[Rfam]
RNA: Small nucleolar RNA SNORA23
Organism: Liparis tanakae
RNA sequence: GGUGGACGGUGUGCUCAGUGACCGUCUGUGUUAUGUGCUGCUGUCUGACUGCGUUUUGCAGGCUGGGCAGCAGUGCUCACUCCACACCUGCAGCCAUAGAAUAACUGGAGGUCAUAGUACUGGUCCUUGACGUCUUUAUUGACAUCUCUCCAUUGGCCAGCCUCCAAAUUCUCCGACAUGC
Numbered sequence: 001g002g003u004g005g006a007c008g009g010u011g012u013g014c015u016c017a018g019u020g021a022c023c024g025u026c027u028g029u030g031u032u033a034u035g036u037g038c039u040g041c042u043g044u045c046u047g048a049c050u051g052c053g054u055u056u057u058g059c060a061g062g063c064u065g066g067g068c069a070g071c072a073g074u075g076c077u078c079a080c081u082c083c084a085c086a087c088c089u090g091c092a093g094c095c096a097u098a099g100a101a102u103a104a105c106u107g108g109a110g111g112u113c114a115u116a117g118u119a120c121u122g123g124u125c126c127u128u129g130a131c132g133u134c135u136u137u138a139u140u141g142a143c144a145u146c147u148c149u150c151c152a153u154u155g156g157c158c159a160g161c162c163u164c165c166a167a168a169u170u171c172u173c174c175g176a177c178a179u180g181c
Stems, first nucleotide, its partner, number of pairs: 013091002029084002034079002036075006043068002045065001047063001050060003107174005120160006127152001129146002132143003